[Rfam]
RNA: RAGATH-18 RNA
RNA sequence: ACUGUGGAGUGUACAAGAACCUGCGAGUAGCGCAUUGCUUGCAAUCGUCAAAGCAUACACGUUGAAGCAGUAA
Numbered sequence: 001a002c003u004g005u006g007g008a009g010u011g012u013a014c015a016a017g018a019a020c021c022u023g024c025g026a027g028u029a030g031c032g033c034a035u036u037g038c039u040u041g042c043a044a045u046c047g048u049c050a051a052a053g054c055a056u057a058c059a060c061g062u063u064g065a066a067g068c069a070g071u072a073a
Base pairs, nucleotide, nucleotide: 001071002070003069004068005067009060010059011058012057013056022055023054024053030048031047032046035044036043